[Rfam]
RNA sequence: CACAAUCUUUGGGGCAGGUGAAAUUCCUGACCGGCGGUGACAGUCCGCGAACCCCUUUGGGGCCGACCCGGUGGAAUUCCGGAACCGACGGUAGCAGGCAGAUGUCUGGACAGUCCGGAUGGGAGAAGAUGGAU
Numbered sequence: 001c002a003c004a005a006u007c008u009u010u011g012g013g014g015c016a017g018g019u020g021a022a023a024u025u026c027c028u029g030a031c032c033g034g035c036g037g038u039g040a041c042a043g044u045c046c047g048c049g050a051a052c053c054c055c056u057u058u059g060g061g062g063c064c065g066a067c068c069c070g071g072u073g074g075a076a077u078u079c080c081g082g083a084a085c086c087g088a089c090g091g092u093a094g095c096a097g098g099c100a101g102a103u104g105u106c107u108g109g110a111c112a113g114u115c116c117g118g119a120u121g122g123g124a125g126a127a128g129a130u131g132g133a134u
Stems, first nucleotide, its partner, number of pairs: 003132001005130006016028003032087002034048004043085002052062002068082004089117003
RNA: FMN riboswitch aptamer (RFN element)
Organism: Shuttleworthella satelles